[Rfam]
RNA sequence: CGCACGACGCAAAAAGCUCUUAAGAACAUUUGAAAGAACCGGGGAAAGUACCCACCCAACCCCACCCCGUCACCCUCCCGGGUGACUUUGGCCAAUCGCGCUGGAUUUCGGGCGGGUUGGCGGGCAUAUGCUCGCCGCGACAACCGCAGACAUGCGACGGCCCCCGGCCAGGACGCCAAUCCUGAUCGAGGGCCUGACCACCGAGGAAGUUAGGGCUUCCCG
Numbered sequence: 001c002g003c004a005c006g007a008c009g010c011a012a013a014a015a016g017c018u019c020u021u022a023a024g025a026a027c028a029u030u031u032g033a034a035a036g037a038a039c040c041g042g043g044g045a046a047a048g049u050a051c052c053c054a055c056c057c058a059a060c061c062c063c064a065c066c067c068c069g070u071c072a073c074c075c076u077c078c079c080g081g082g083u084g085a086c087u088u089u090g091g092c093c094a095a096u097c098g099c100g101c102u103g104g105a106u107u108u109c110g111g112g113c114g115g116g117u118u119g120g121c122g123g124g125c126a127u128a129u130g131c132u133c134g135c136c137g138c139g140a141c142a143a144c145c146g147c148a149g150a151c152a153u154g155c156g157a158c159g160g161c162c163c164c165c166g167g168c169c170a171g172g173a174c175g176c177c178a179a180u181c182c183u184g185a186u187c188g189a190g191g192g193c194c195u196g197a198c199c200a201c202c203g204a205g206g207a208a209g210u211u212a213g214g215g216c217u218u219c220c221c222g
Stems, first nucleotide, its partner, number of pairs: 002053001070085006100136001102134003159194005165188002170183004205220005
The record is a 222-nucleotide RNA from Streptomyces lunaelactis, which matches "Streptomyces sRNA 4677" in Rfam. The match comes from Rfam's covariance-model search (98 bits). From the family's description: Located in the intergenic region between anti-sigma factor SCO4677 gene and a putative regulatory protein gene SCO4676. scr4677 expression requires the SCO4677 activity and scr4677 sRNA itself seem to affect the levels of the SCO4676-associated transcripts. The base pairs follow the family's consensus structure. The family has 12 seed sequences and 563 matches in Rfam 15.1.